Notes:
Small nucleolar RNA SNORA42/SNORA80 family: a 134-nucleotide sequence from Cavia porcellus. Rfam 15.1 lists 1,535 matches to the family in 183 species. The source organism's lineage runs through Eukaryota, Bilateria, Chordata, Mammalia and Cavia. The base pairs follow the family's consensus structure, which was predicted with RNAalifold. The match comes from Rfam's covariance-model search (108 bits). On this family, see Schattner et al., RNA 2006: "A computational screen for mammalian pseudouridylation guide H/ACA RNAs".

[Rfam]
RNA sequence: GUAUGGGUUUGGAUUUAUGGCAGGCCUGUCCCCGUAGGCCUCUCAUAAUCUCCCAUGCCAGAGCAAGUUGUGACCCUGAACCAUUGCCUGGCCUCUCUACGUGGGCUGCUGUCACUGAAACAAGGUACACAGCA
Dot-bracket structure: (((((((.......((((((.((((...........).))).))))))..))).))))............((.(.......((....(((((((........))))))..)....))......).)).......